A member of the RNA family "mir-184 microRNA precursor family" from Biomphalaria glabrata, 80 nucleotides long.
The family has 66 seed sequences and 948 matches in Rfam 15.1.
RNA sequence: AAGCCUACGUUUCCUCAUCACUUUUCCAUCCCGUCUGUAACAGAGCACUGGACGGAGAACUGAUAAGGGCUUGUGGGUGA
Numbered sequence: 001a002a003g004c005c006u007a008c009g010u011u012u013c014c015u016c017a018u019c020a021c022u023u024u025u026c027c028a029u030c031c032c033g034u035c036u037g038u039a040a041c042a043g044a045g046c047a048c049u050g051g052a053c054g055g056a057g058a059a060c061u062g063a064u065a066a067g068g069g070c071u072u073g074u075g076g077g078u079g080a
Stems, first nucleotide, its partner, number of pairs: 012069004017064004022059006030051002
NCBI's taxonomy places the organism under Eukaryota, Euthyneura, Panpulmonata, Lymnaeoidea, Biomphalaria. For this family Rfam cites "The developmental miRNA profiles of zebrafish as determined by small RNA cloning" (Chen et al., Genes Dev, 2005).